[Rfam]
RNA: Small nucleolar RNA SNORA38
RNA sequence: CCCUCCUACAAAGGCAUGUCUAUAGUUCCUUGUCUUUGGACAUGUAAGAAUUGGAGGCAAAGAAAUGUGGACUUGGAGAAAUCUGGGGCCAGCUUGCUCUCCGCAGGCUCAAGAUCAACCAUCCCACAUAG
Numbered sequence: 001c002c003c004u005c006c007u008a009c010a011a012a013g014g015c016a017u018g019u020c021u022a023u024a025g026u027u028c029c030u031u032g033u034c035u036u037u038g039g040a041c042a043u044g045u046a047a048g049a050a051u052u053g054g055a056g057g058c059a060a061a062g063a064a065a066u067g068u069g070g071a072c073u074u075g076g077a078g079a080a081a082u083c084u085g086g087g088g089c090c091a092g093c094u095u096g097c098u099c100u101c102c103g104c105a106g107g108c109u110c111a112a113g114a115u116c117a118a119c120c121a122u123c124c125c126a127c128a129u130a131g
Stems, first nucleotide, its partner, number of pairs: 002057005015044007024030002069124003073121001091109007